[Rfam]
RNA sequence: UGCGACGAGUUGACUCAACCAGAUGAUCGUUUCGAUCAUUCCGAUUUUAUCGGCGUGUGGUUGGUUAAUGCAGAGGCACAGAUGUUCACUCAUCAACUACCGGAUUGUAGGCGUGUCGGAUGAAGUUUUUGUGGAGAAA
Numbered sequence: 001u002g003c004g005a006c007g008a009g010u011u012g013a014c015u016c017a018a019c020c021a022g023a024u025g026a027u028c029g030u031u032u033c034g035a036u037c038a039u040u041c042c043g044a045u046u047u048u049a050u051c052g053g054c055g056u057g058u059g060g061u062u063g064g065u066u067a068a069u070g071c072a073g074a075g076g077c078a079c080a081g082a083u084g085u086u087c088a089c090u091c092a093u094c095a096a097c098u099a100c101c102g103g104a105u106u107g108u109a110g111g112c113g114u115g116u117c118g119g120a121u122g123a124a125g126u127u128u129u130u131g132u133g134g135a136g137a138a139a
Stems, first nucleotide, its partner, number of pairs: 017062005022040008041053004075117005097110004126139005
RNA: Enterococcus sRNA 68 (Lacto-3 RNA)
Organism: Candidatus Enterococcus clewellii